[Rfam]
RNA sequence: UGAAAUGGUUGAGGUGCAAAGGCCAUCAGUAUCUUAUUACGGUAAAUCUGCAAAUUGUAAUAAGUGAAAGGGGACUUUGCCGAAAUGGAGUUUUGUUUGCAGACGAAACUUUGUUGGAUUGUAUAUUAAUAGUAUGCAGUCUGUCAUUAUUCUUAGUAAUAAUGGAGUGCUUCCACUUGU
Numbered sequence: 001u002g003a004a005a006u007g008g009u010u011g012a013g014g015u016g017c018a019a020a021g022g023c024c025a026u027c028a029g030u031a032u033c034u035u036a037u038u039a040c041g042g043u044a045a046a047u048c049u050g051c052a053a054a055u056u057g058u059a060a061u062a063a064g065u066g067a068a069a070g071g072g073g074a075c076u077u078u079g080c081c082g083a084a085a086u087g088g089a090g091u092u093u094u095g096u097u098u099g100c101a102g103a104c105g106a107a108a109c110u111u112u113g114u115u116g117g118a119u120u121g122u123a124u125a126u127u128a129a130u131a132g133u134a135u136g137c138a139g140u141c142u143g144u145c146a147u148u149a150u151u152c153u154u155a156g157u158a159a160u161a162a163u164g165g166a167g168u169g170c171u172u173c174c175a176c177u178u179g180u
Stems, first nucleotide, its partner, number of pairs: 006175003011170001016080006023073002033064007084115012116142011144165007
Lysine riboswitch aptamer: a 180-nucleotide RNA from Ornithinibacillus halotolerans. The organism belongs to Ornithinibacillus, within Bacteria. The match comes from Rfam's covariance-model search (110 bits).